[Rfam]
RNA sequence: UGUCUUAGUUACUCACUCAACCUGGGUGUGAUGUGUUUUUUUCCAUCACAACCUCCUUGAGUGAGCGAUUAAGUAG
Numbered sequence: 001u002g003u004c005u006u007a008g009u010u011a012c013u014c015a016c017u018c019a020a021c022c023u024g025g026g027u028g029u030g031a032u033g034u035g036u037u038u039u040u041u042u043c044c045a046u047c048a049c050a051a052c053c054u055c056c057u058u059g060a061g062u063g064a065g066c067g068a069u070u071a072a073g074u075a076g
Base pairs, nucleotide, nucleotide: 009067012065013064014063015062016061017060018059019058020057024053025052027050028049029048030047031046032045033044